A member of the RNA family "MIR2118 microRNA precursor family" from Setaria viridis, 174 nucleotides long. A search with the family's covariance model found it, with a score of 138 bits. Gene Ontology terms of the family: miRNA-mediated post-transcriptional gene silencing and RISC complex.
RNA sequence: GCCAGGAAGAGGAAGAAAGAGAAUACCUAAGAGCAGUGGGAAUGGGAACAUGGAGGAAAGCACAACAACUGUCUGUUUUUUUCCCUCAAGAAUUGGAUGCAGACAUUUGUCUGUGUUUUCCUGGUGCCUCCCAUUCCUACAGUUCUUAGGUGCUCCUCCCUCUUCCUCGGACCU
Numbered sequence: 001g002c003c004a005g006g007a008a009g010a011g012g013a014a015g016a017a018a019g020a021g022a023a024u025a026c027c028u029a030a031g032a033g034c035a036g037u038g039g040g041a042a043u044g045g046g047a048a049c050a051u052g053g054a055g056g057a058a059a060g061c062a063c064a065a066c067a068a069c070u071g072u073c074u075g076u077u078u079u080u081u082u083c084c085c086u087c088a089a090g091a092a093u094u095g096g097a098u099g100c101a102g103a104c105a106u107u108u109g110u111c112u113g114u115g116u117u118u119u120c121c122u123g124g125u126g127c128c129u130c131c132c133a134u135u136c137c138u139a140c141a142g143u144u145c146u147u148a149g150g151u152g153c154u155c156c157u158c159c160c161u162c163u164u165c166c167u168c169g170g171a172c173c174u
Stems, first nucleotide, its partner, number of pairs: 009165005015159001017157001021155002026150009037139011049126003053122001055121010
Dot-bracket structure: ........(((((.(.(...((...(((((((((..(((((((((((.(((.(.((((((((((...............................................))))))))))).)))..)))))))))))..)))))))))...)).).).))))).........